Shown here is a 145-nucleotide sequence from Chelonia mydas, a member of the family "Wolbachia sRNA 46". The source organism's lineage runs through Eukaryota, Opisthokonta, Metazoa, Craniata and Chelonia. The literature on the family includes a 2014 paper in Proc Natl Acad Sci U S A by Mayoral et al., "Wolbachia small noncoding RNAs and their role in cross-kingdom communications". The family's RNA type in Rfam is small RNA. The match comes from Rfam's covariance-model search (71 bits).
[Rfam]
RNA sequence: GUAUUCGCAAAAAGAAAAGGAGUACUUGUGGCACCUUAGAGACUAACCAGUUUAUUUGAGCAUAAAUAAAUAAAUUAAUUAAAUAAAUUGCUCAAAUAAAUUGGUUAGUCUCUAAGGUGCCACAAGUACUCCUUUUCUUUCAGUU
Dot-bracket structure: ..........(((((.....((((((((((((((((((((((((((((((..................................................)))))))))))))))))))))))))))))).....))))).....